[Rfam]
RNA sequence: AUGAAUGUCUGGAAGAUUUCAGGAUGAGAACCUGCAAGGUUCGACGGUGAGGCGUAGCCGAGCCGAACAGCGCCGUAUGCGGCGCUGGCCCGAAGGGCGAGGCGCAUAGCGCCGAGUAAUCCUGGUCCCCCAGCCA
Numbered sequence: 001a002u003g004a005a006u007g008u009c010u011g012g013a014a015g016a017u018u019u020c021a022g023g024a025u026g027a028g029a030a031c032c033u034g035c036a037a038g039g040u041u042c043g044a045c046g047g048u049g050a051g052g053c054g055u056a057g058c059c060g061a062g063c064c065g066a067a068c069a070g071c072g073c074c075g076u077a078u079g080c081g082g083c084g085c086u087g088g089c090c091c092g093a094a095g096g097g098c099g100a101g102g103c104g105c106a107u108a109g110c111g112c113c114g115a116g117u118a119a120u121c122c123u124g125g126u127c128c129c130c131c132a133g134c135c136a
Base pairs, nucleotide, nucleotide: 015127016126017125020124021123022122023121025119035096040094041093042092043091068087069086070085071084072083073082074081075080

The record is a 136-nucleotide sequence from Thioalkalivibrio versutus, which matches "RtT RNA" in Rfam. A search with the family's covariance model found it, with a score of 59 bits. By type it is a cis-regulatory element. About the family: This family represents a bacterial cis-regulatory element known as RtT RNA. The exact function of RtT is unknown although it is thought that it may be involved in changing the cellular response in relation to amino acid starvation.